[Rfam]
The record is a 108-nucleotide sequence from Marinomonas pollencensis, which matches "Guanidine-I riboswitch aptamer" in Rfam. The pairing is the family consensus, mapped onto this sequence.

RNA sequence: AAAAUAGAGAGCUAGGGUUCCGGUUUCGAUUAUAUCGAAAUGACUGGUCCGAGAGCUUUCGACCUUGGAUGUUUCAAGGUUACACGGAGGGAUAAAAGCCCGGGAGAC
Numbered sequence: 001a002a003a004a005u006a007g008a009g010a011g012c013u014a015g016g017g018u019u020c021c022g023g024u025u026u027c028g029a030u031u032a033u034a035u036c037g038a039a040a041u042g043a044c045u046g047g048u049c050c051g052a053g054a055g056c057u058u059u060c061g062a063c064c065u066u067g068g069a070u071g072u073u074u075c076a077a078g079g080u081u082a083c084a085c086g087g088a089g090g091g092a093u094a095a096a097a098g099c100c101c102g103g104g105a106g107a108c
Stems, first nucleotide, its partner, number of pairs: 007060006015050002020047002022044001023041006061081008083103001085106001089101003
Background:
Taxonomically the source falls in Marinomonas (Bacteria, Pseudomonadati, Gammaproteobacteria, Oceanospirillales). It scores 100 bits against the family's covariance model.